[Rfam]
Nucleotides: 076
Stems, first nucleotide, its partner, number of pairs: 001076007
Number, partner (000 for none) and nucleotide at each position: 001076a002075u003074a004073u005072g006071c007070u008000c009000u010000a011000u012000g013000a014000u015000g016000a017000a018000u019000u020000g021000a022000a023000u024000a025000g026000u027000u028000a029000u030000c031000c032000c033000u034000g035000u036000c037000u038000g039000a040000u041000g042000u043000u044000a045000u046000u047000a048000a049000u050000g051000a052000g053000a054000g055000a056000u057000a058000a059000c060000c061000a062000u063000g064000u065000u066000c067000u068000g069000a070007g071006g072005c073004a074003u075002a076001u